The record is a 73-nucleotide RNA sequence from Lactococcus termiticola, which matches "tRNA" in Rfam.
RNA sequence: GCCGCAAUAGCUCAGUCGGUAGAGCAGCACCAUGGUAAGGUGAAGGUCGUAGGUUCGAUUCCUAUUUGUGGCA
Numbered sequence: 001g002c003c004g005c006a007a008u009a010g011c012u013c014a015g016u017c018g019g020u021a022g023a024g025c026a027g028c029a030c031c032a033u034g035g036u037a038a039g040g041u042g043a044a045g046g047u048c049g050u051a052g053g054u055u056c057g058a059u060u061c062c063u064a065u066u067u068g069u070g071g072c073a
Base pairs, nucleotide, nucleotide: 001072002071003070004069005068006067007066010025011024012023013022028042029041030040031039049065050064051063052062053061

Background
Rfam links the family to the GO term triplet codon-amino acid adaptor activity. For this family Rfam cites "The tertiary structure of tRNA and the development of the genetic code" (Hou, Trends Biochem Sci, 1993). It is annotated as a transfer RNA. It scores 66 bits against the family's covariance model. Taxonomically the source falls in Lactococcus (Bacteria, Bacillati, Bacilli, Lactobacillales). The base pairs follow the family's consensus structure, which is taken from published work.